[Rfam]
RNA sequence: UAAUACCGUCAACUCAAGUAAAUCUCGUGCGGCUUGUGUCACUAUUAAGCCGUUCGAGAUUUACUUAGGCUGAUGGUAAA
Numbered sequence: 001u002a003a004u005a006c007c008g009u010c011a012a013c014u015c016a017a018g019u020a021a022a023u024c025u026c027g028u029g030c031g032g033c034u035u036g037u038g039u040c041a042c043u044a045u046u047a048a049g050c051c052g053u054u055c056g057a058g059a060u061u062u063a064c065u066u067a068g069g070c071u072g073a074u075g076g077u078a079a080a
Base pairs, nucleotide, nucleotide: 006076007075008074009073010072011071013069014068016066017065018064019063020062021061022060023059024058025057026056027055029053030052031051032050033049034048035047036046